[Rfam]
RNA sequence: GGGAAAGCGCUUGGAAUUUCCGGCAGUCUGGCAGUGUUAAUAGCCUUUUCUUUGGCGGAUAAGGCGGUUAGUGAAUU
Numbered sequence: 001g002g003g004a005a006a007g008c009g010c011u012u013g014g015a016a017u018u019u020c021c022g023g024c025a026g027u028c029u030g031g032c033a034g035u036g037u038u039a040a041u042a043g044c045c046u047u048u049u050c051u052u053u054g055g056c057g058g059a060u061a062a063g064g065c066g067g068u069u070a071g072u073g074a075a076u077u
Base pairs, nucleotide, nucleotide: 001021002020003019004018005017037071038070039069040068041067043065044064045063046062047061049059050058051057
RNA: L13-Bacteroidia ribosomal protein leader